About this RNA: The family of this 83-nucleotide RNA from Nyssa sinensis is "small nucleolar RNA snoR117". The family's consensus secondary structure was predicted with RNAalifold. Its family is annotated with nucleolus and RNA processing in the Gene Ontology. For this family Rfam cites "Mining small RNA sequencing data: a new approach to identify small nucleolar RNAs in Arabidopsis" (Chen and Wu, Nucleic Acids Res, 2009).
RNA sequence: GGCCUGUGAUGUAAUGAGAUUGUCCGUACCAUCUGAGAUCUUUAGAUCUAAUAUUUGAUGUGUAAUCAUAUCUACUGAGGCCU
Numbered sequence: 001g002g003c004c005u006g007u008g009a010u011g012u013a014a015u016g017a018g019a020u021u022g023u024c025c026g027u028a029c030c031a032u033c034u035g036a037g038a039u040c041u042u043u044a045g046a047u048c049u050a051a052u053a054u055u056u057g058a059u060g061u062g063u064a065a066u067c068a069u070a071u072c073u074a075c076u077g078a079g080g081c082c083u
Stems, first nucleotide, its partner, number of pairs: 001082004